[Rfam]
RNA sequence: UUGACGUGUGGGGAUGGAGUUCCCCAUGAAGUGCCAUCCGGGCUGAUGACUCCUACCUGAUG
Numbered sequence: 001u002u003g004a005c006g007u008g009u010g011g012g013g014a015u016g017g018a019g020u021u022c023c024c025c026a027u028g029a030a031g032u033g034c035c036a037u038c039c040g041g042g043c044u045g046a047u048g049a050c051u052c053c054u055a056c057c058u059g060a061u062g
Stems, first nucleotide, its partner, number of pairs: 010025004016053006033043003
Dot-bracket structure: .........[[[[..((((((]]]].......(((.....)))....)))))).........
The family of this 62-nucleotide sequence from Paraburkholderia sp. DHOC27 is "Fluoride riboswitch aptamer (crcB RNA motif)".
A search with the family's covariance model found it, with a score of 53 bits.